[Rfam]
RNA: Mammalian CPEB3 ribozyme
Organism: Geotrypetes seraphini
RNA sequence: AUAGUAGACAGGGGUCAAAACAGAAGUGUUCGUGUCAAAACCCUGUCAGAUUACUAAGGAUCAGCAAUUUCUGCU
Numbered sequence: 001a002u003a004g005u006a007g008a009c010a011g012g013g014g015u016c017a018a019a020a021c022a023g024a025a026g027u028g029u030u031c032g033u034g035u036c037a038a039a040a041c042c043c044u045g046u047c048a049g050a051u052u053a054c055u056a057a058g059g060a061u062c063a064g065c066a067a068u069u070u071c072u073g074c075u
Stems, first nucleotide, its partner, number of pairs: 011043001013042003019075001021073005027037002047064001049062004